[Rfam]
RNA sequence: AUACUUACCUGGCAGGGGAGACACCAUGAUCAAGAAGGUGGUUCACCCAGGGCGAGCUCAGCCAUUGCACUCCGGUUGUGCUGACCCUGCGAAUUCCCCAAAUGUGGGAAUCUCGACUGCAUAAUUUUGGUAGUGGGGGACUGCGUUCGCGUUCCCCUG
Numbered sequence: 001a002u003a004c005u006u007a008c009c010u011g012g013c014a015g016g017g018g019a020g021a022c023a024c025c026a027u028g029a030u031c032a033a034g035a036a037g038g039u040g041g042u043u044c045a046c047c048c049a050g051g052g053c054g055a056g057c058u059c060a061g062c063c064a065u066u067g068c069a070c071u072c073c074g075g076u077u078g079u080g081c082u083g084a085c086c087c088u089g090c091g092a093a094u095u096c097c098c099c100a101a102a103u104g105u106g107g108g109a110a111u112c113u114c115g116a117c118u119g120c121a122u123a124a125u126u127u128u129g130g131u132a133g134u135g136g137g138g139g140a141c142u143g144c145g146u147u148c149g150c151g152u153u154c155c156c157c158u159g
Base pairs, nucleotide, nucleotide: 012120013119014118015117016048017047018046020044021043023042024041025040026039027038049088050087051086052085055082056081057080059078060077061076062075063074090115091114092113093111094110095109097107098106135158136157137156138155139154140153142151143150144149